[Rfam]
RNA sequence: UCCCCCACAGUCCUCCGAUUCUCGUUUUCCGCAAGGAAUGUCUAUCGUAGACCCCCCUCACAGGCUGGUUUGCCCACGGUGUGCCGCUCUCGAGCCUGUAUCAGGACCUCGCUGCCAGCCGCAUUUGGAUUCACCGUGGUCUCUUGCCGUCGAUUCCUCGAGGUCCAGCCUAGCCCGGGGGAACGAUGUUUCGGAACUUAACCCUAAGUAUACACG
Numbered sequence: 001u002c003c004c005c006c007a008c009a010g011u012c013c014u015c016c017g018a019u020u021c022u023c024g025u026u027u028u029c030c031g032c033a034a035g036g037a038a039u040g041u042c043u044a045u046c047g048u049a050g051a052c053c054c055c056c057c058u059c060a061c062a063g064g065c066u067g068g069u070u071u072g073c074c075c076a077c078g079g080u081g082u083g084c085c086g087c088u089c090u091c092g093a094g095c096c097u098g099u100a101u102c103a104g105g106a107c108c109u110c111g112c113u114g115c116c117a118g119c120c121g122c123a124u125u126u127g128g129a130u131u132c133a134c135c136g137u138g139g140u141c142u143c144u145u146g147c148c149g150u151c152g153a154u155u156c157c158u159c160g161a162g163g164u165c166c167a168g169c170c171u172a173g174c175c176c177g178g179g180g181g182a183a184c185g186a187u188g189u190u191u192c193g194g195a196a197c198u199u200a201a202c203c204c205u206a207a208g209u210a211u212a213c214a215c216g
Base pairs, nucleotide, nucleotide: 009198010197011196015194016193017192018191
Record summary: Ascomycota telomerase RNA: a 216-nucleotide part of an RNA from Hapsidospora chrysogena. The organism belongs to Hapsidospora chrysogena, within Eukaryota. The literature on the family includes a 2013 paper in Nucleic Acids Res by Qi et al., "The common ancestral core of vertebrate and fungal telomerase RNAs".